[Rfam]
RNA sequence: AAAUGUUACUAGGGGUGUCUUGAAAAAAAGACUGAGAUGCGAAUGGCAGACCCUUUGAACCUGUAAGUUCAUGCUUGCGUAGGGAAGUUGACAAAAAAUUCG
Numbered sequence: 001a002a003a004u005g006u007u008a009c010u011a012g013g014g015g016u017g018u019c020u021u022g023a024a025a026a027a028a029a030g031a032c033u034g035a036g037a038u039g040c041g042a043a044u045g046g047c048a049g050a051c052c053c054u055u056u057g058a059a060c061c062u063g064u065a066a067g068u069u070c071a072u073g074c075u076u077g078c079g080u081a082g083g084g085a086a087g088u089u090g091a092c093a094a095a096a097a098a099u100u101c102g
Base pairs, nucleotide, nucleotide: 006090008088009087010086011054012053013052014051016048017032018031019030020029021028039047040046060083061082062081063080064077065076066075067074
RNA: TPP riboswitch aptamer (THI element)
Organism: Enterococcus aquimarinus